[Rfam]
RNA sequence: CUCUUAUCCCGAGCUGGUGGAGGGAUCAGGCCCUAUGAAGCCCGGCAACCUGCAAAGACGAAAGUCUAACGCGAAGGUGCCGAACCUGAUGCAAGGCAUAGUUCCUUGGACGAUAAGAG
Numbered sequence: 001c002u003c004u005u006a007u008c009c010c011g012a013g014c015u016g017g018u019g020g021a022g023g024g025a026u027c028a029g030g031c032c033c034u035a036u037g038a039a040g041c042c043c044g045g046c047a048a049c050c051u052g053c054a055a056a057g058a059c060g061a062a063a064g065u066c067u068a069a070c071g072c073g074a075a076g077g078u079g080c081c082g083a084a085c086c087u088g089a090u091g092c093a094a095g096g097c098a099u100a101g102u103u104c105c106u107u108g109g110a111c112g113a114u115a116a117g118a119g
Stems, first nucleotide, its partner, number of pairs: 001119008013043001016042003022033003027091002030086001044081004049077002051073003092108005

The family of this 119-nucleotide RNA from Sporosarcina sp. HYO08 is "SAM riboswitch aptamer (S box leader)".
Pairs were carried over by alignment from the consensus structure, which is taken from published work.
It scores 67 bits against the family's covariance model.
Gene Ontology term of the family: regulation of gene expression.